[Rfam]
RNA sequence: AUGCCUUAAACUAAUGAGUAAGGAAAACAACGAUUCGGGGUGACGCCCGAGUCCUCACCCCAUGUGUGAGAGAAAUUUUUGACCGGGUACAGGUCGUCCUUAUGGUGACUCGCUUACUCUGCGGGAUGCCUGGGUGUUUCGAUCUGCCCG
Numbered sequence: 001a002u003g004c005c006u007u008a009a010a011c012u013a014a015u016g017a018g019u020a021a022g023g024a025a026a027a028c029a030a031c032g033a034u035u036c037g038g039g040g041u042g043a044c045g046c047c048c049g050a051g052u053c054c055u056c057a058c059c060c061c062a063u064g065u066g067u068g069a070g071a072g073a074a075a076u077u078u079u080u081g082a083c084c085g086g087g088u089a090c091a092g093g094u095c096g097u098c099c100u101u102a103u104g105g106u107g108a109c110u111c112g113c114u115u116a117c118u119c120u121g122c123g124g125g126a127u128g129c130c131u132g133g134g135u136g137u138u139u140c141g142a143u144c145u146g147c148c149c150g
Stems, first nucleotide, its partner, number of pairs: 004023005032053008054070005084150005091145006100134002104130004109125005
U12 minor spliceosomal RNA: a 150-nucleotide RNA sequence from Eptatretus burgeri. The family has 62 seed sequences and 2,106 matches in Rfam 15.1. It scores 139 bits against the family's covariance model. For this family Rfam cites "The divergent U12-type spliceosome is required for pre-mRNA splicing and is essential for development in Drosophila" (Otake et al., Mol Cell, 2002). It is annotated as a spliceosomal small nuclear RNA. Pairs were carried over by alignment from the consensus structure.